[Rfam]
RNA sequence: GGCUUAUCAAGAGAGGGUGAGCGACUGGCGCGAAGACCCCCGGCAACCAGAAAUGGUGCCAAUUCCUGCAGCGGAAACGUUGAAAGAUGAGCCG
Numbered sequence: 001g002g003c004u005u006a007u008c009a010a011g012a013g014a015g016g017g018u019g020a021g022c023g024a025c026u027g028g029c030g031c032g033a034a035g036a037c038c039c040c041c042g043g044c045a046a047c048c049a050g051a052a053a054u055g056g057u058g059c060c061a062a063u064u065c066c067u068g069c070a071g072c073g074g075a076a077a078c079g080u081u082g083a084a085a086g087a088u089g090a091g092c093c094g
Stems, first nucleotide, its partner, number of pairs: 001093008013041001015040003021031003025068001027066002042060004047056002064085001069082005
RNA: SAM riboswitch aptamer (S box leader)